Shown here is a 145-nucleotide sequence from Amborella trichopoda, a member of the family "Small nucleolar RNA F1/F2/snoR5a". From the family's description: This family contains F1, F2 and snoR5a sequences, all of which are members of the the H/ACA class of snoRNA that guide the sites of modification of uridines to pseudouridines. Rfam classes the family as an H/ACA-box small nucleolar RNA. Rfam links the family to the GO terms nucleolus and RNA processing.
RNA sequence: CAUUGCCUGAUGGUAUCUGAUGCCGUGAUUGAGUCACUGUAUCUCGGCUUCUCGUUUGACAGGCAUAAAUUAAAUUUUACAGUUCUUGCGACACAGAUUGCUCUGUACCAUGAUCUUUCUGUUACUUUUAUCCCUGUUUACAUUU
Numbered sequence: 001c002a003u004u005g006c007c008u009g010a011u012g013g014u015a016u017c018u019g020a021u022g023c024c025g026u027g028a029u030u031g032a033g034u035c036a037c038u039g040u041a042u043c044u045c046g047g048c049u050u051c052u053c054g055u056u057u058g059a060c061a062g063g064c065a066u067a068a069a070u071u072a073a074a075u076u077u078u079a080c081a082g083u084u085c086u087u088g089c090g091a092c093a094c095a096g097a098u099u100g101c102u103c104u105g106u107a108c109c110a111u112g113a114u115c116u117u118u119c120u121g122u123u124a125c126u127u128u129u130a131u132c133c134c135u136g137u138u139u140a141c142a143u144u145u
Stems, first nucleotide, its partner, number of pairs: 004065006019051002022048004027043003031040001079137004093122005100115001102113001